[Rfam]
RNA sequence: GGUUUCCAUUGGUGCAAAUUCCAGCACCUCAAUUUGCAAUUUAAGGUGAGAAAGAAUUCCCCGUUGGUAACAAAUAGUUUAUCCAUUAAGCGGGGGGAAAUA
Numbered sequence: 001g002g003u004u005u006c007c008a009u010u011g012g013u014g015c016a017a018a019u020u021c022c023a024g025c026a027c028c029u030c031a032a033u034u035u036g037c038a039a040u041u042u043a044a045g046g047u048g049a050g051a052a053a054g055a056a057u058u059c060c061c062c063g064u065u066g067g068u069a070a071c072a073a074a075u076a077g078u079u080u081a082u083c084c085a086u087u088a089a090g091c092g093g094g095g096g097g098a099a100a101u102a
Stems, first nucleotide, its partner, number of pairs: 009023001011021002059095004063086002066083005071077001
RNA: Plastid-rps12 3UTR RNA
Organism: Carapa guianensis